[Rfam]
RNA sequence: GUAGGUACGGUAUUAGUGGGACCUACCCCUGUCGACAUAAUUGGAAGAAAUCUGUUGACUCGCCUUGGUUGCACUUUAAAUUUUCCAAUCGAUCCCGUUGAAACUGUACCAGU
Numbered sequence: 001g002u003a004g005g006u007a008c009g010g011u012a013u014u015a016g017u018g019g020g021a022c023c024u025a026c027c028c029c030u031g032u033c034g035a036c037a038u039a040a041u042u043g044g045a046a047g048a049a050a051u052c053u054g055u056u057g058a059c060u061c062g063c064c065u066u067g068g069u070u071g072c073a074c075u076u077u078a079a080a081u082u083u084u085c086c087a088a089u090c091g092a093u094c095c096c097g098u099u100g101a102a103a104c105u106g107u108a109c110c111a112g113u
Stems, first nucleotide, its partner, number of pairs: 004110008013101009031059007039051001065088004
RNA: HIV pol-1 stem loop
Organism: Lentivirus humimdef1